[Rfam]
The record is an 86-nucleotide RNA from Clostridium pasteurianum, which matches "Group II catalytic intron D1-D4-1" in Rfam. A search with the family's covariance model found it, with a score of 66 bits. About the family: Group II introns are found in rRNA, tRNA and mRNA of organelles in fungi, plants and protists, and also in mRNA in bacteria.

RNA sequence: UAACCUUUACAGAGAUGUAAAGCUGAAAUCUGAGAAGUCAGCAGAUGUCAUAUUAGUAGAAGUGUCAUGAGACUUCUAUGAAGGAC
Numbered sequence: 001u002a003a004c005c006u007u008u009a010c011a012g013a014g015a016u017g018u019a020a021a022g023c024u025g026a027a028a029u030c031u032g033a034g035a036a037g038u039c040a041g042c043a044g045a046u047g048u049c050a051u052a053u054u055a056g057u058a059g060a061a062g063u064g065u066c067a068u069g070a071g072a073c074u075u076c077u078a079u080g081a082a083g084g085a086c
Stems, first nucleotide, its partner, number of pairs: 001025002005022007037046003047086003056079008